[Rfam]
RNA sequence: GCAUCGGUGGUCUAGGGGUAUGAUACUCGCCUGCCACGCGGGUGACCCGGGUUCAAGUCCCGGCCGAUGCA
Numbered sequence: 001g002c003a004u005c006g007g008u009g010g011u012c013u014a015g016g017g018g019u020a021u022g023a024u025a026c027u028c029g030c031c032u033g034c035c036a037c038g039c040g041g042g043u044g045a046c047c048c049g050g051g052u053u054c055a056a057g058u059c060c061c062g063g064c065c066g067a068u069g070c071a
Stems, first nucleotide, its partner, number of pairs: 001070007010024003026042005047063005